[Rfam]
RNA sequence: ACGUACAGGAAGUACGUUCCGGUUCCUGCGCUCCGUCCGCCUUGCCUGAGGGCUGCUCGCUACGGUUUCUUCGCA
Number, nucleotide and partner (000 for none) at each position: 001a000002c016003g015004u014005a013006c012007a000008g000009g000010a000011a000012g006013u005014a004015c003016g002017u000018u000019c000020c035021g034022g033023u000024u000025c030026c000027u000028g000029c000030g025031c000032u000033c022034c021035g020036u000037c000038c000039g000040c000041c000042u000043u000044g000045c000046c073047u000048g071049a070050g069051g068052g067053c000054u000055g000056c000057u000058c000059g000060c000061u000062a000063c000064g000065g000066u000067u052068u051069c050070u049071u048072c000073g046074c000075a000
Rfam assigns this 75-nucleotide sequence from Curvibacter sp. PAE-UM to the family "Xanthomonas sRNA sX9". The source organism's lineage runs through Bacteria, Pseudomonadati, Betaproteobacteria, Burkholderiales and Curvibacter. The literature on the family includes a 2011 paper in Nucleic Acids Res by Schmidtke et al., "Genome-wide transcriptome analysis of the plant pathogen Xanthomonas identifies sRNAs with putative virulence functions". A search with the family's covariance model found it, with a score of 57 bits. Rfam 15.1 lists 309 matches to the family in 52 species. Pairs were carried over by alignment from the consensus structure, which was predicted with RNAalifold. It is annotated as a small RNA.